Source information: A member of the RNA family "LOOT RNA", 114 nucleotides long. The sequence is in the family's curated seed alignment.
[Rfam]
RNA sequence: CGCUAACCUUACAAGUUUUGCAAGGUAUGCACAAAAAACCAACCAAGGUAUAGAGCUCGUCGUCAGAGCACUUUGUUGGUCAUAUCCCGAAAGGGGUAUGGUCUCGCAAGAGAU
Numbered sequence: 001c002g003c004u005a006a007c008c009u010u011a012c013a014a015g016u017u018u019u020g021c022a023a024g025g026u027a028u029g030c031a032c033a034a035a036a037a038a039c040c041a042a043c044c045a046a047g048g049u050a051u052a053g054a055g056c057u058c059g060u061c062g063u064c065a066g067a068g069c070a071c072u073u074u075g076u077u078g079g080u081c082a083u084a085u086c087c088c089g090a091a092a093g094g095g096g097u098a099u100g101g102u103c104u105c106g107c108a109a110g111a112g113a114u
Stems, first nucleotide, its partner, number of pairs: 002030002007025004012020002039079005045074005055069004081100008101114005